RNA sequence: AUAGCGUAAGUUCAUACUGCUCGUAUAAAUUUGAGGAUAUGGCUCAAAAGUUUCUACCAGGCGACCGUAAAUUACCUGACUACGAGUGAAAUUGUACCUAGG
Numbered sequence: 001a002u003a004g005c006g007u008a009a010g011u012u013c014a015u016a017c018u019g020c021u022c023g024u025a026u027a028a029a030u031u032u033g034a035g036g037a038u039a040u041g042g043c044u045c046a047a048a049a050g051u052u053u054c055u056a057c058c059a060g061g062c063g064a065c066c067g068u069a070a071a072u073u074a075c076c077u078g079a080c081u082a083c084g085a086g087u088g089a090a091a092u093u094g095u096a097c098c099u100a101g102g
Stems, first nucleotide, its partner, number of pairs: 018088008030048006058078004063073002